[Rfam]
Nucleotides: 109
Stems, first nucleotide, its partner, number of pairs: 005107008014098001016096017035077007043069001045067003
Number, partner (000 for none) and nucleotide at each position: 001000g002000u003000u004000c005107u006106u007105g008104g009103a010102u011101u012100c013000a014098c015000c016096u017095c018094a019093a020092u021091c022090c023089a024088c025087a026086u027085g028084u029083g030082u031081u032080g033000a034000g035077g036076u037075g038074g039073a040072u041071u042000u043069g044000g045067g046066u047065g048000g049000a050000a051000u052000u053000u054000a055000g056000u057000u058000c059000a060000a061000g062000u063000u064000c065047c066046a067045c068000u069043u070000c071041a072040a073039u074038c075037c076036a077035c078000c079000c080032c081031a082030a083029c084028a085027c086026a087025u088024g089023u090022g091021g092020g093019u094018u095017g096016a097000u098014g099000c100012g101011a102010a103009u104008c105007u106006g107005a108000c109000u

Shown here is a 109-nucleotide RNA from Miscanthus lutarioriparius, a member of the family "MIR5565 microRNA precursor family". Pairs were carried over by alignment from the consensus structure, which was predicted with RNAalifold. A search with the family's covariance model found it, with a score of 97 bits. The source organism's lineage runs through Eukaryota, Streptophytina, Panicoideae, Andropogonodae and Miscanthus.